[Rfam]
Nucleotides: 190
Base pairs, nucleotide, nucleotide: 008027009026010025012023013022014021015020048067049066050065051064052063053062070084071083073081074080075079114148115147116146117145118144119143120142127138128137129136130135151183152182153181154180155179156178162176163175
Number, partner (000 for none) and nucleotide at each position: 001000a002000u003000a004000c005000c006000u007000u008027u009026c010025u011000c012023g013022g014021c015020c016000u017000u018000u019000u020015g021014g022013c023012u024000a025010a026009g027008a028000u029000c030000a031000c032000g033000u034000g035000u036000a037000g038000u039000a040000u041000c042000u043000g044000u045000u046000c047000u048067u049066a050065u051064c052063a053062g054000u055000u056000u057000a058000a059000u060000a061000u062053c063052u064051g065050a066049u067048g068000u069000a070084u071083g072000g073081g074080c075079c076000a077000a078000u079075g080074g081073u082000a083071c084070a085000c086000a087000c088000g089000a090000u091000a092000u093000u094000u095000a096000a097000u098000u099000a100000a101000u102000u103000u104000u105000u106000u107000u108000a109000u110000c111000g112000g113000g114148g115147a116146a117145g118144a119143u120142c121000c122000u123000a124000a125000c126000a127138a128137u129136a130135g131000c132000u133000u134000g135130c136129u137128a138127u139000u140000g141000a142120g143119g144118u145117c146116u147115u148114c149000a150000u151183g152182c153181g154180u155179c156178a157000c158000c159000u160000a161000a162176g163175u164000g165000u166000u167000a168000c169000u170000c171000u172000a173000c174000u175163g176162c177000c178156u179155g180154g181153c182152g183151c184000a185000u186000c187000c188000c189000c190000a